[Rfam]
RNA sequence: GGGCAGUUACCAAAGUGGCCAAAUGGGACUGACUGUAAAUCAGUUGCGAGAGCUUCGGAGGUUCGAAUCCUCCACUGCCCA
Numbered sequence: 001g002g003g004c005a006g007u008u009a010c011c012a013a014a015g016u017g018g019c020c021a022a023a024u025g026g027g028a029c030u031g032a033c034u035g036u037a038a039a040u041c042a043g044u045u046g047c048g049a050g051a052g053c054u055u056c057g058g059a060g061g062u063u064c065g066a067a068u069c070c071u072c073c074a075c076u077g078c079c080c081a
Stems, first nucleotide, its partner, number of pairs: 001080007010026003028044005057073005
Shown here is an 81-nucleotide RNA from Tengunoibacter tsumagoiensis, a member of the family "tRNA". The match comes from Rfam's covariance-model search (60 bits). The family's RNA type in Rfam is transfer RNA.